RNA sequence: AAGCGACACCAUGUGGCAGAUGAUCCAAACUGUCUAACACAAACUGAACUUGCUAUAGCAACAAAGUCUAGCCUAUUGUGAUAUGCUCUCCUCUUUGAGACAAACCAUUAUAUAGACUUAAUGUUU
Dot-bracket structure: ...........((((..(((((........)))))..))))......................(((((((...(((..((.(....((((......))))...).))..)))))))))).......
Small nucleolar RNA SNORA28: a 126-nucleotide RNA from Myotis davidii. Clan: SNORA28 clan. Rfam links the family to the GO terms nucleolus and RNA processing. Rfam 15.1 lists 922 matches to the family in 535 species. The family's consensus secondary structure was predicted with RNAfold.